[Rfam]
RNA: DUF2693-FD RNA
RNA sequence: GCCUUACAGACAGCUAAAGACUGGCAACCGAUAGCGAGAAUCGGGUGGGGC
Numbered sequence: 001g002c003c004u005u006a007c008a009g010a011c012a013g014c015u016a017a018a019g020a021c022u023g024g025c026a027a028c029c030g031a032u033a034g035c036g037a038g039a040a041u042c043g044g045g046u047g048g049g050g051c
Stems, first nucleotide, its partner, number of pairs: 001051007011023002019035001025038001028044005